Overview: Rfam assigns this 97-nucleotide RNA sequence from Pseudidiomarina piscicola to the family "t44 RNA". Rfam describes the family as follows. This family consists of a number of bacterial RNA genes of between 135 and 170 bases in length. The t44 gene has been identified in several species of enteric bacteria but homologs have also been identified in Pseudomonas and Coxiella species. The t44 gene is found between the map and rpsB genes in all species in the full alignment apart from Shigella flexneri. The function of this RNA is unknown. The match comes from Rfam's covariance-model search (80 bits). The base pairs follow the family's consensus structure, which was predicted with LocARNA. By type it is a small RNA.
RNA sequence: ACUAACUUAUUUAAACCACACACAUACAUCGACACAUAGGUCGGGGUGCCUAAAGCGUAAGCUAAGGGUCGAACUAUGGGAUGUAUGGAGGCAUAAC
Dot-bracket structure: ......................((((((((....(((((.(((....((((..............))))))).))))).))))))))..........